[Rfam]
RNA sequence: AAGUAAUGGAUUGGAAUGAUCAGAACUGUCUGACACAAUUUGAGUUUGCUAUAGCAAGAAAGUAUCACCUAUUCCAGUGUUCUCUCUUCAUGAAACAAGCUGUUAUAAAAACUUAAACAGU
Numbered sequence: 001a002a003g004u005a006a007u008g009g010a011u012u013g014g015a016a017u018g019a020u021c022a023g024a025a026c027u028g029u030c031u032g033a034c035a036c037a038a039u040u041u042g043a044g045u046u047u048g049c050u051a052u053a054g055c056a057a058g059a060a061a062g063u064a065u066c067a068c069c070u071a072u073u074c075c076a077g078u079g080u081u082c083u084c085u086c087u088u089c090a091u092g093a094a095a096c097a098a099g100c101u102g103u104u105a106u107a108a109a110a111a112c113u114u115a116a117a118c119a120g121u
Stems, first nucleotide, its partner, number of pairs: 011042001012037002014034001016029003060114004065109001070107003075102004083095001085093002
The family of this 121-nucleotide sequence from Cebus imitator is "Small nucleolar RNA SNORA28". Lineage of the source: Eukaryota > Tetrapoda > Mammalia > Cebidae > Cebus. ACA28 is a member of the H/ACA class of snoRNA that guide the sites of modification of uridines to pseudouridines. Gene Ontology terms of the family: RNA processing and nucleolus. It scores 77 bits against the family's covariance model. Rfam 15.1 lists 922 matches to the family in 535 species. The literature on the family includes a 2001 paper in EMBO J by Huttenhofer et al., "RNomics: an experimental approach that identifies 201 candidates for novel, small, non-messenger RNAs in mouse".